[Rfam]
RNA sequence: ACAGCAGAAUCCGAAAAGCUUAUAGAGUAGGAA
Numbered sequence: 001a002c003a004g005c006a007g008a009a010u011c012c013g014a015a016a017a018g019c020u021u022a023u024a025g026a027g028u029a030g031g032a033a
Stems, first nucleotide, its partner, number of pairs: 003020003010032003

The record is a 33-nucleotide RNA sequence, which matches "DUF805b RNA" in Rfam. Rfam's curators put it in the seed alignment. The family's consensus secondary structure is taken from published work.